[Rfam]
RNA sequence: AUGAGGAUGAUGAAAAAAUCAGACGGAUUCCCAAUGAUUCUCUUCGAGAGAAAGGUGAUCUUACAACCAGCUACUUCUGACUCAU
Numbered sequence: 001a002u003g004a005g006g007a008u009g010a011u012g013a014a015a016a017a018a019u020c021a022g023a024c025g026g027a028u029u030c031c032c033a034a035u036g037a038u039u040c041u042c043u044u045c046g047a048g049a050g051a052a053a054g055g056u057g058a059u060c061u062u063a064c065a066a067c068c069a070g071c072u073a074c075u076u077c078u079g080a081c082u083c084a085u
Base pairs, nucleotide, nucleotide: 001085002084003083004082005081
RNA: Small nucleolar RNA R12